The family of this 80-nucleotide sequence from Phyllostomus discolor is "mir-105 microRNA precursor family". The family's consensus secondary structure was predicted with RNAalifold. The source organism's lineage runs through Eukaryota, Opisthokonta, Eutheria, Yangochiroptera and Phyllostomus. The match comes from Rfam's covariance-model search (78 bits).
RNA sequence: UGUGUGUCAUGGUCAAAUGUUCAGACUCCUUGGUGUCUGCUUAUGCACCAUGAAUGUUUGAGCAUGUGCUAUGGUUUCUA
Numbered sequence: 001u002g003u004g005u006g007u008c009a010u011g012g013u014c015a016a017a018u019g020u021u022c023a024g025a026c027u028c029c030u031u032g033g034u035g036u037c038u039g040c041u042u043a044u045g046c047a048c049c050a051u052g053a054a055u056g057u058u059u060g061a062g063c064a065u066g067u068g069c070u071a072u073g074g075u076u077u078c079u080a
Base pairs, nucleotide, nucleotide: 004077006075007074008073009072010071011070012069014068015067017065018064019063020062021061022060023059024058025057026056027054029052033051034050035049038047039046040045